The record is a 75-nucleotide RNA sequence from Sakesphorus luctuosus, which matches "Small nucleolar RNA SNORD26" in Rfam. The base pairs follow the family's consensus structure, which was predicted with PFOLD. For this family Rfam cites "A mammalian gene with introns instead of exons generating stable RNA products" (Tycowski et al., Nature, 1996). Its family is annotated with nucleolus and RNA processing in the Gene Ontology.
[Rfam]
RNA sequence: CCGCGGGGAUGAUCCCACUGAACUCUCUCUUACUGAUGGGCCGGUGGAGAAGCUCCUGAACAAGUUCUGAGUGGC
Numbered sequence: 001c002c003g004c005g006g007g008g009a010u011g012a013u014c015c016c017a018c019u020g021a022a023c024u025c026u027c028u029c030u031u032a033c034u035g036a037u038g039g040g041c042c043g044g045u046g047g048a049g050a051a052g053c054u055c056c057u058g059a060a061c062a063a064g065u066u067c068u069g070a071g072u073g074g075c
Stems, first nucleotide, its partner, number of pairs: 001074004